[Rfam]
RNA sequence: GUCGGUGUCGUGACCAUCCAGCCGCAGCCCGUACCGGUUACCACCGAGCUGCCGGGCCGCACCAGCGCGUUCCUCGUCGCGGAAGUCCGCGCACGGGUGGAUGGCAUCGUGCUGCGCCGCGAAUUCACCGAAGGCGCCGAGGUCAAGGCCGGGCAGCGUCUUUACAAGAUCGA
Numbered sequence: 001g002u003c004g005g006u007g008u009c010g011u012g013a014c015c016a017u018c019c020a021g022c023c024g025c026a027g028c029c030c031g032u033a034c035c036g037g038u039u040a041c042c043a044c045c046g047a048g049c050u051g052c053c054g055g056g057c058c059g060c061a062c063c064a065g066c067g068c069g070u071u072c073c074u075c076g077u078c079g080c081g082g083a084a085g086u087c088c089g090c091g092c093a094c095g096g097g098u099g100g101a102u103g104g105c106a107u108c109g110u111g112c113u114g115c116g117c118c119g120c121g122a123a124u125u126c127a128c129c130g131a132a133g134g135c136g137c138c139g140a141g142g143u144c145a146a147g148g149c150c151g152g153g154c155a156g157c158g159u160c161u162u163u164a165c166a167a168g169a170u171c172g173a
Stems, first nucleotide, its partner, number of pairs: 003054005008047003011043002016038001018037002021034001023031002055150004059143002063139001065137004072133001074131002079092003094121002097118001100115001102114005157172002159169003
RNA: Burkholderia RNA 14
Organism: Paraburkholderia saeva